[Rfam]
The record is a 102-nucleotide RNA sequence from Sporolactobacillus laevolacticus, which matches "Purine riboswitch aptamer" in Rfam. About the family: Riboswitches are metabolite binding domains within certain messenger RNAs that serve as precision sensors for their corresponding targets. The match comes from Rfam's covariance-model search (78 bits).
RNA sequence: CAAAUGAAGAUUGCGAACCCUCAUAUAUUUUUGGGAAUAUGGCCCAACUGUCUCUACCUGGCGACCGGAAAUUGCCGGACUAUGAAGGGAAAAUGGUGACGU
Number, nucleotide and partner (000 for none) at each position: 001c000002a000003a000004a000005u000006g000007a000008a000009g000010a000011u000012u000013g000014c000015g000016a000017a000018c088019c087020c000021u085022c084023a083024u082025a081026u000027a000028u000029u000030u000031u047032u046033g045034g044035g043036a000037a000038u000039a000040u000041g000042g000043c035044c034045c033046a032047a031048c000049u000050g000051u000052c000053u000054c000055u000056a000057c000058c078059u077060g076061g075062c074063g073064a072065c000066c000067g000068g000069a000070a000071a000072u064073u063074g062075c061076c060077g059078g058079a000080c000081u025082a024083u023084g022085a021086a000087g019088g018089g000090a000091a000092a000093a000094u000095g000096g000097u000098g000099a000100c000101g000102u000